RNA sequence: GGUCACGAGCGCCAGCGUCAAGCCCCGGCUUGCUGGCCGGCAACCCUUCUCCAUGUAGGGGUGCCCCGGGUGAGGACCAGGCCGCGCAGUCCGCCGUGAGGGCGGGACUGCGGCAAGACGUGGAC
Numbered sequence: 001g002g003u004c005a006c007g008a009g010c011g012c013c014a015g016c017g018u019c020a021a022g023c024c025c026c027g028g029c030u031u032g033c034u035g036g037c038c039g040g041c042a043a044c045c046c047u048u049c050u051c052c053a054u055g056u057a058g059g060g061g062u063g064c065c066c067c068g069g070g071u072g073a074g075g076a077c078c079a080g081g082c083c084g085c086g087c088a089g090u091c092c093g094c095c096g097u098g099a100g101g102g103c104g105g106g107a108c109u110g111c112g113g114c115a116a117g118a119c120g121u122g123g124a125c
Stems, first nucleotide, its partner, number of pairs: 001078004009038001011037006021030002039065003044061003049055001081114003086111007
Dot-bracket structure: ((((....(.((((((....((......)).)))))))(((..(((..(.....)...))).))).........))))..(((..(((((((............))))))))))...........
RNA: SAM (S-adenosyl methionine) riboswitch aptamer
Organism: Conexibacter woesei